[Rfam]
RNA: tRNA
RNA sequence: CCGAAAAUAGCUCAGUUGGUAGAGCGAGGGACUGUAGUGUUAUCCAGUUAUCCCCAGGUCGGUGGUUCAAAUCCGCCUUUUCGGA
Dot-bracket structure: (((((((..((((........))))..((((...................))))......(((((.......)))))))))))).
Numbered sequence: 001c002c003g004a005a006a007a008u009a010g011c012u013c014a015g016u017u018g019g020u021a022g023a024g025c026g027a028g029g030g031a032c033u034g035u036a037g038u039g040u041u042a043u044c045c046a047g048u049u050a051u052c053c054c055c056a057g058g059u060c061g062g063u064g065g066u067u068c069a070a071a072u073c074c075g076c077c078u079u080u081u082c083g084g085a
Stems, first nucleotide, its partner, number of pairs: 001084007010025004028054004061077005